Bacterial large subunit ribosomal RNA: a 566-nucleotide part of an RNA from Oceanobacillus halophilus. Pairs were carried over by alignment from the consensus structure, which is taken from published work.
RNA sequence: GAAUAAGGGCGCACGGUGGAUGCCUUGGCACUAGGAGCCGAUGAAGGACGGGACUAACACCGAUAUGCUUCGGGGAGCUGUAAGUAAGCUUCGAUCCGGAGAUUUCCGAAUGGGGAAACCCACUGUUCGUAAUGGAACAGGACUUAUGUCUGAAUACAUAGGGCAUAAGAGGCAGACCCGGGGAACUGAAACAUCUCAGUACCCGGAGGAAGAGAAAGCAAAUGCGAUUUCCCAAGUAGCGGCGAGCGAAACGGAAUUAGCCCAAACCAGAGAGCUUGCUCUCUGGGGUUGUAGGACACUCCUUUGGAGUUACAAAGAAAUUCUUUAGACGAAUCCAUCUGGAAAGAUGAGCCAAAGAGGGUAAUAGCCCUGUAGUCAAAAGAGAAUUUCCUCCGGAGUGGAUCCUGAGUACGGCGGAACACGUGGAAUUCCGUCGGAAUCCGGGAGGACCAUCUCCCAAGGCUAAAUACUCCCUAGUGACCGAUAGUGAACCAGUACCGUGAGGGAAAGGUGAAAAGCACCCCGGGAGGGGAGUGAAAGAGUACCUGAAACCGUGUGCCUACAAG
Numbered sequence: 001g002a003a004u005a006a007g008g009g010c011g012c013a014c015g016g017u018g019g020a021u022g023c024c025u026u027g028g029c030a031c032u033a034g035g036a037g038c039c040g041a042u043g044a045a046g047g048a049c050g051g052g053a054c055u056a057a058c059a060c061c062g063a064u065a066u067g068c069u070u071c072g073g074g075g076a077g078c079u080g081u082a083a084g085u086a087a088g089c090u091u092c093g094a095u096c097c098g099g100a101g102a103u104u105u106c107c108g109a110a111u112g113g114g115g116a117a118a119c120c121c122a123c124u125g126u127u128c129g130u131a132a133u134g135g136a137a138c139a140g141g142a143c144u145u146a147u148g149u150c151u152g153a154a155u156a157c158a159u160a161g162g163g164c165a166u167a168a169g170a171g172g173c174a175g176a177c178c179c180g181g182g183g184a185a186c187u188g189a190a191a192c193a194u195c196u197c198a199g200u201a202c203c204c205g206g207a208g209g210a211a212g213a214g215a216a217a218g219c220a221a222a223u224g225c226g227a228u229u230u231c232c233c234a235a236g237u238a239g240c241g242g243c244g245a246g247c248g249a250a251a252c253g254g255a256a257u258u259a260g261c262c263c264a265a266a267c268c269a270g271a272g273a274g275c276u277u278g279c280u281c282u283c284u285g286g287g288g289u290u291g292u293a294g295g296a297c298a299c300u301c302c303u304u305u306g307g308a309g310u311u312a313c314a315a316a317g318a319a320a321u322u323c324u325u326u327a328g329a330c331g332a333a334u335c336c337a338u339c340u341g342g343a344a345a346g347a348u349g350a351g352c353c354a355a356a357g358a359g360g361g362u363a364a365u366a367g368c369c370c371u372g373u374a375g376u377c378a379a380a381a382g383a384g385a386a387u388u389u390c391c392u393c394c395g396g397a398g399u400g401g402a403u404c405c406u407g408a409g410u411a412c413g414g415c416g417g418a419a420c421a422c423g424u425g426g427a428a429u430u431c432c433g434u435c436g437g438a439a440u441c442c443g444g445g446a447g448g449a450c451c452a453u454c455u456c457c458c459a460a461g462g463c464u465a466a467a468u469a470c471u472c473c474c475u476a477g478u479g480a481c482c483g484a485u486a487g488u489g490a491a492c493c494a495g496u497a498c499c500g501u502g503a504g505g506g507a508a509a510g511g512u513g514a515a516a517a518g519c520a521c522c523c524c525g526g527g528a529g530g531g532g533a534g535u536g537a538a539a540g541a542g543u544a545c546c547u548g549a550a551a552c553c554g555u556g557u558g559c560c561u562a563c564a565a566g
Base pairs, nucleotide, nucleotide: 007561008560009559010558011557012556013555014554015553016552022546023511024510027482028481029479030478031477032476033475034474035473036471037470038172039171046107047106048105049062050061051060068101069100070099071098072097073096074095077089078088079087112121113120114119123140124139125138126137127136128135143169144168145167146166147165148164149163150162151161177208178206179205180204181203182202188195189194218225219224228467229256230255231254232253239247240246259464260463261462262461267286268285269284270283271282272281273280293406294405295404297400298399299398300397301396315392317390318389319388320387321386322385323384324383325382326381328377329376330375334350336349337348338347339346353357359371360370361369412436413435414434415433416432417431418430419429443458444457445456446455447454498505499504521532522531523530524529